Shown here is a 109-nucleotide RNA sequence from Lachnospiraceae bacterium 10-1, a member of the family "S10-Clostridia ribosomal protein leader". The base pairs follow the family's consensus structure, which is taken from published work. Taxonomically the source falls in Lachnospiraceae (Bacteria, Bacillota, Clostridia, Lachnospirales).
RNA sequence: UGAUAGCUAUGAAGCGUGAGGUUGCUGCUGUGCUGAAAAGCAUUGCAGGUUUUCCGUGGAGCGAAUGUCAAGAGGCUGGUAUCUGCCAGACCUAAGAACCUGACGGCAA
Numbered sequence: 001u002g003a004u005a006g007c008u009a010u011g012a013a014g015c016g017u018g019a020g021g022u023u024g025c026u027g028c029u030g031u032g033c034u035g036a037a038a039a040g041c042a043u044u045g046c047a048g049g050u051u052u053u054c055c056g057u058g059g060a061g062c063g064a065a066u067g068u069c070a071a072g073a074g075g076c077u078g079g080u081a082u083c084u085g086c087c088a089g090a091c092c093u094a095a096g097a098a099c100c101u102g103a104c105g106g107c108a109a
Stems, first nucleotide, its partner, number of pairs: 014057003018054004025048004066108004